Rfam assigns this 101-nucleotide RNA from Halodesulfovibrio spirochaetisodalis to the family "Glycine riboswitch aptamer". This family represents the bacterial glycine riboswitch. Taxonomically the source falls in Halodesulfovibrio (Bacteria, Thermodesulfobacteriota, Desulfovibrionia, Desulfovibrionales). The match comes from Rfam's covariance-model search (61 bits).

RNA sequence: UGACGAGCCUCUGGAGAGACUUCGCAUGUUGCGGAGCACCGAAGGAGCAAGCCUUGCCGUGCAAGGUGAAACUCUCAGGUACCAAGGACAGAGUGAGUGUA
Numbered sequence: 001u002g003a004c005g006a007g008c009c010u011c012u013g014g015a016g017a018g019a020c021u022u023c024g025c026a027u028g029u030u031g032c033g034g035a036g037c038a039c040c041g042a043a044g045g046a047g048c049a050a051g052c053c054u055u056g057c058c059g060u061g062c063a064a065g066g067u068g069a070a071a072c073u074c075u076c077a078g079g080u081a082c083c084a085a086g087g088a089c090a091g092a093g094u095g096a097g098u099g100u101a
Stems, first nucleotide, its partner, number of pairs: 009093005020036004038080003041076002045074003051067005